[Rfam]
RNA sequence: GGGCGUAUGGUCUAGUGGUAAGACGUCUCAUUUGCAAAGAAUGUUCGUUGCCUUGAACUUGUUCCAAUAGAACGGGUGAAAGGGUUCGAAUGAUACAAUGCUCCAUGAGAAGGUCCCGGGUUCGAACCCCGGUACGUCCA
Numbered sequence: 001g002g003g004c005g006u007a008u009g010g011u012c013u014a015g016u017g018g019u020a021a022g023a024c025g026u027c028u029c030a031u032u033u034g035c036a037a038a039g040a041a042u043g044u045u046c047g048u049u050g051c052c053u054u055g056a057a058c059u060u061g062u063u064c065c066a067a068u069a070g071a072a073c074g075g076g077u078g079a080a081a082g083g084g085u086u087c088g089a090a091u092g093a094u095a096c097a098a099u100g101c102u103c104c105a106u107g108a109g110a111a112g113g114u115c116c117c118g119g120g121u122u123c124g125a126a127c128c129c130c131g132g133u134a135c136g137u138c139c140a
Stems, first nucleotide, its partner, number of pairs: 001139007010024004026110005116132005

The family of this 140-nucleotide RNA from Apiosordaria backusii is "tRNA". Rfam links the family to the GO term triplet codon-amino acid adaptor activity. From the family's description: Transfer RNA (tRNA) molecules are approximately 80 nucleotides in length.